This 50-nucleotide RNA sequence belongs to the Rfam family "eL15-Euryarchaeota ribosomal protein leader".
Nucleotides: 050
Base pairs, nucleotide, nucleotide: 001015002014003013004012005011018045019044025040026039027038028037029036
Number, partner (000 for none) and nucleotide at each position: 001015c002014c003013u004012g005011a006000g007000a008000u009000a010000c011005u012004c013003a014002g015001g016000u017000c018045g019044g020000g021000a022000u023000g024000u025040g026039a027038u028037c029036u030000c031000u032000c033000a034000c035000g036029g037028g038027a039026u040025u041000g042000a043000a044019c045018c046000a047000g048000g049000a050000a
Pairs were carried over by alignment from the consensus structure, which is taken from published work.
The family's RNA type in Rfam is cis-regulatory leader.